Small nucleolar RNA SNORA64/SNORA10 family: a 140-nucleotide sequence from Ophiophagus hannah. From the family's description: This family belongs to the H/ACA class of small nucleolar RNAs (snoRNAs) which act as guides in the the modification of uridines to pseudouridines. This family includes the human snoRNAs U64 and ACA10 and mouse MBI-29. The organism belongs to Ophiophagus, within Eukaryota.
[Rfam]
RNA sequence: GAACUCUCAGCUCUGCUCAGUUGCACCUGACUCCAGUGGUGCAGCUGUCGUUUUCGAGAGGGAAAACAAAUGAGUUCAAAUUUGCACGGCAGGGAGUCCUGCUGCAGUGGUCUCUCUGUUCCUUAUCAAACUCGACAUGU
Numbered sequence: 001g002a003a004c005u006c007u008c009a010g011c012u013c014u015g016c017u018c019a020g021u022u023g024c025a026c027c028u029g030a031c032u033c034c035a036g037u038g039g040u041g042c043a044g045c046u047g048u049c050g051u052u053u054u055c056g057a058g059a060g061g062g063a064a065a066a067c068a069a070a071u072g073a074g075u076u077c078a079a080a081u082u083u084g085c086a087c088g089g090c091a092g093g094g095a096g097u098c099c100u101g102c103u104g105c106a107g108u109g110g111u112c113u114c115u116c117u118g119u120u121c122c123u124u125a126u127c128a129a130a131c132u133c134g135a136c137a138u139g140u
Stems, first nucleotide, its partner, number of pairs: 005063004011058003015054001019046008075130002078126001080123001084121001091117003095113002098110002

Gene Ontology terms of the family: RNA processing and nucleolus.